[Rfam]
RNA sequence: AGAUGGUCCGAAGGUAGUGACUUAUCUCAAUUGAUUAUUCAGUCAAUUACAGAUAAAACUCCUUGUCCUACUCUUUCCCCCAUUUUCACUACUGCAUUUGAUGUCUUCAC
Numbered sequence: 001a002g003a004u005g006g007u008c009c010g011a012a013g014g015u016a017g018u019g020a021c022u023u024a025u026c027u028c029a030a031u032u033g034a035u036u037a038u039u040c041a042g043u044c045a046a047u048u049a050c051a052g053a054u055a056a057a058a059c060u061c062c063u064u065g066u067c068c069u070a071c072u073c074u075u076u077c078c079c080c081c082a083u084u085u086u087c088a089c090u091a092c093u094g095c096a097u098u099u100g101a102u103g104u105c106u107u108c109a110c
Stems, first nucleotide, its partner, number of pairs: 001106005007101002010099002014095002016090005042072001045069001